[Rfam]
RNA: Bacterial RNase P class A
Organism: Flavihumibacter solisilvae
RNA sequence: UCUUCUCUCCGGGCUAUCGCGGACUGCGCUGCAGGUCGAGGAAAGUCCGGACAGCAUAGGGCAAUACACCGGCUAACGGCCGGGAAGCGGGUAACCGCUUACAGACAGUGCCACAGAAAAUGACUACCUCCAACGAGGAAAAGGUGAAAAUGUAGGGUAAGAGCCUACGGUACCCGGCAGUAAUGCCAGGUACGGGUAAACCUUGUAUGCUGAAAUGCCAUGUAUACCGGUGGUAGAGGGUUGCCCGCCCGAUGACAGCCCGACUGUCAACACCGGAGGGUAGGCAGAUAGAUCGUGCCAGUAAUGGUACGGCCAGAUAAAUGAUAGCCCUCACUUUCGGGUGAGACAGAAUCCGGCUUACAGGAGAGAAGAUUUU
Numbered sequence: 001u002c003u004u005c006u007c008u009c010c011g012g013g014c015u016a017u018c019g020c021g022g023a024c025u026g027c028g029c030u031g032c033a034g035g036u037c038g039a040g041g042a043a044a045g046u047c048c049g050g051a052c053a054g055c056a057u058a059g060g061g062c063a064a065u066a067c068a069c070c071g072g073c074u075a076a077c078g079g080c081c082g083g084g085a086a087g088c089g090g091g092u093a094a095c096c097g098c099u100u101a102c103a104g105a106c107a108g109u110g111c112c113a114c115a116g117a118a119a120a121u122g123a124c125u126a127c128c129u130c131c132a133a134c135g136a137g138g139a140a141a142a143g144g145u146g147a148a149a150a151u152g153u154a155g156g157g158u159a160a161g162a163g164c165c166u167a168c169g170g171u172a173c174c175c176g177g178c179a180g181u182a183a184u185g186c187c188a189g190g191u192a193c194g195g196g197u198a199a200a201c202c203u204u205g206u207a208u209g210c211u212g213a214a215a216u217g218c219c220a221u222g223u224a225u226a227c228c229g230g231u232g233g234u235a236g237a238g239g240g241u242u243g244c245c246c247g248c249c250c251g252a253u254g255a256c257a258g259c260c261c262g263a264c265u266g267u268c269a270a271c272a273c274c275g276g277a278g279g280g281u282a283g284g285c286a287g288a289u290a291g292a293u294c295g296u297g298c299c300a301g302u303a304a305u306g307g308u309a310c311g312g313c314c315a316g317a318u319a320a321a322u323g324a325u326a327g328c329c330c331u332c333a334c335u336u337u338c339g340g341g342u343g344a345g346a347c348a349g350a351a352u353c354c355g356g357c358u359u360a361c362a363g364g365a366g367a368g369a370a371g372a373u374u375u376u
Base pairs, nucleotide, nucleotide: 001372002371003370004369005368006367007366008365009364010363011361012329013328014327015326016325017324018323020038021037022036024034025033026032027031043359044358045357047356048355049354050353051352052212053211054210055209061261064208065207066206067205068204069083070082071081072080073079084102085100086099087098088097089096090095103203104202108201109200110197111196112195124143125142127138128137129136130135151169152168153167154166155165156164171192172191173190174189176187177186178185179184216286217285218284219283227276228275229274230273231272254268255267256266257265293312294311295310296309297308298307299306300305